[Rfam]
RNA sequence: UCGGUCAUCAUUUUUGUGAAUGAGCAAUUUUGAGUUUAAGUUCAAUUGCAUAGUCACAAAAGUGAUGGAUGC
Numbered sequence: 001u002c003g004g005u006c007a008u009c010a011u012u013u014u015u016g017u018g019a020a021u022g023a024g025c026a027a028u029u030u031u032g033a034g035u036u037u038a039a040g041u042u043c044a045a046u047u048g049c050a051u052a053g054u055c056a057c058a059a060a061a062g063u064g065a066u067g068g069a070u071g072c
Stems, first nucleotide, its partner, number of pairs: 002071002005068002008065012024049006
This 72-nucleotide RNA sequence from Dracunculus medinensis belongs to the Rfam family "mir-153 microRNA precursor family". Taxonomically the source falls in Dracunculus (Eukaryota, Eumetazoa, Nematoda, Rhabditida). It scores 61 bits against the family's covariance model. The family's consensus secondary structure was predicted with RNAalifold. Gene Ontology terms of the family: miRNA-mediated post-transcriptional gene silencing and RISC complex.